[Rfam]
RNA sequence: AAAUGUUGCAAUCGACUUCCCGAUGGGGUCCAAAUUUUGGACAUGCCUUGUAACCGAUAAAUUUUAGGGGGAAACAUAAAAUG
Numbered sequence: 001a002a003a004u005g006u007u008g009c010a011a012u013c014g015a016c017u018u019c020c021c022g023a024u025g026g027g028g029u030c031c032a033a034a035u036u037u038u039g040g041a042c043a044u045g046c047c048u049u050g051u052a053a054c055c056g057a058u059a060a061a062u063u064u065u066a067g068g069g070g071g072a073a074a075c076a077u078a079a080a081a082u083g
Stems, first nucleotide, its partner, number of pairs: 017073005025048003029041005054068002

Notes: Rfam assigns this 83-nucleotide RNA from Lacticaseibacillus manihotivorans to the family "SAM-III riboswitch aptamer (SMK box)". A search with the family's covariance model found it, with a score of 66 bits.